RNA sequence: CCCUCAACUCUCUUGAUGAGCCCAUGUGCCUCUGAGCUGCCAUGAUUCUGGCUUCAAAGUAAACGCUCUGAAGAGAUGGAGCAAAGG
Numbered sequence: 001c002c003c004u005c006a007a008c009u010c011u012c013u014u015g016a017u018g019a020g021c022c023c024a025u026g027u028g029c030c031u032c033u034g035a036g037c038u039g040c041c042a043u044g045a046u047u048c049u050g051g052c053u054u055c056a057a058a059g060u061a062a063a064c065g066c067u068c069u070g071a072a073g074a075g076a077u078g079g080a081g082c083a084a085a086g087g
Stems, first nucleotide, its partner, number of pairs: 002087003008081003
RNA: Small nucleolar RNA SNORD105
Organism: Molossus molossus